[Rfam]
Rfam assigns this 81-nucleotide RNA sequence from Aquarana catesbeiana to the family "mir-26 microRNA precursor family". The source organism's lineage runs through Eukaryota, Deuterostomia, Gnathostomata, Ranidae and Aquarana. Its family is annotated with miRNA-mediated post-transcriptional gene silencing and RISC complex in the Gene Ontology. The literature on the family includes a 2001 paper in Science by Lagos-Quintana et al., "Identification of novel genes coding for small expressed RNAs".
RNA sequence: ACGGCGCUGGCCGCAAGUAAUCAAGAAUAGGCUGAAAGGGGAAGUCACAGCCUAUCCUGGAUUACUUGAAUCCAGCACCGG
Numbered sequence: 001a002c003g004g005c006g007c008u009g010g011c012c013g014c015a016a017g018u019a020a021u022c023a024a025g026a027a028u029a030g031g032c033u034g035a036a037a038g039g040g041g042a043a044g045u046c047a048c049a050g051c052c053u054a055u056c057c058u059g060g061a062u063u064a065c066u067u068g069a070a071u072c073c074a075g076c077a078c079c080g081g
Stems, first nucleotide, its partner, number of pairs: 002080003007075004014068009024058002027055007